[Rfam]
RNA sequence: AAAGUCCUCAUAGGUAAAGGCAUAGCCAGCCAACCAUACUGAGUGUUGCGUGAUUGGGAAGGAGAGACACAAAGUCGAACGACCCAGACGAAGCGUACACAAGGAAUUCUGUGGGCCGUAAGGAAGUUCGCACCUUCCUGAAGCAAUUCAGCCUCGUAACUGCAUAUACAGGUGGCGACGACGUUAGGAAAGCGGAAGCCAAUACAAAGGGAUCGAAAGCGCAUCGUUGCAGAGCAUAAGUUGGCAUUGAGCGCAAGGCGAGAUCCCUGAAGGCCUGUCGGGGUCAGAGAGCA
Dot-bracket structure: ............(((...(((...[[..))).)))...((..(((((((((...((((..(..................)..)))).)))...)).)))).))............................................(..((((((...........(((((((((..((............))...)))....(..(((((((......]].......................................)))))))...)))))))))))))..)......
Numbered sequence: 001a002a003a004g005u006c007c008u009c010a011u012a013g014g015u016a017a018a019g020g021c022a023u024a025g026c027c028a029g030c031c032a033a034c035c036a037u038a039c040u041g042a043g044u045g046u047u048g049c050g051u052g053a054u055u056g057g058g059a060a061g062g063a064g065a066g067a068c069a070c071a072a073a074g075u076c077g078a079a080c081g082a083c084c085c086a087g088a089c090g091a092a093g094c095g096u097a098c099a100c101a102a103g104g105a106a107u108u109c110u111g112u113g114g115g116c117c118g119u120a121a122g123g124a125a126g127u128u129c130g131c132a133c134c135u136u137c138c139u140g141a142a143g144c145a146a147u148u149c150a151g152c153c154u155c156g157u158a159a160c161u162g163c164a165u166a167u168a169c170a171g172g173u174g175g176c177g178a179c180g181a182c183g184u185u186a187g188g189a190a191a192g193c194g195g196a197a198g199c200c201a202a203u204a205c206a207a208a209g210g211g212a213u214c215g216a217a218a219g220c221g222c223a224u225c226g227u228u229g230c231a232g233a234g235c236a237u238a239a240g241u242u243g244g245c246a247u248u249g250a251g252c253g254c255a256a257g258g259c260g261a262g263a264u265c266c267c268u269g270a271a272g273g274c275c276u277g278u279c280g281g282g283g284u285c286a287g288a289g290a291g292c293a
Stems, first nucleotide, its partner, number of pairs: 013035003019031003025222002039103002043100004047095002049090003055086004061080001148287001151284006168278006174200003179194002205272001208268007

The record is a 293-nucleotide RNA sequence from Candidatus Jettenia caeni, which matches "Group II catalytic intron D1-D4-6" in Rfam.
The source organism's lineage runs through Bacteria, Planctomycetota, Candidatus Brocadiia, Candidatus Brocadiales and Candidatus Jettenia.
About the family: Group II introns are found in rRNA, tRNA and mRNA of organelles in fungi, plants and protists, and also in mRNA in bacteria.
It scores 102 bits against the family's covariance model.
Rfam 15.1 lists 1,617 matches to the family in 661 species.
Pairs were carried over by alignment from the consensus structure.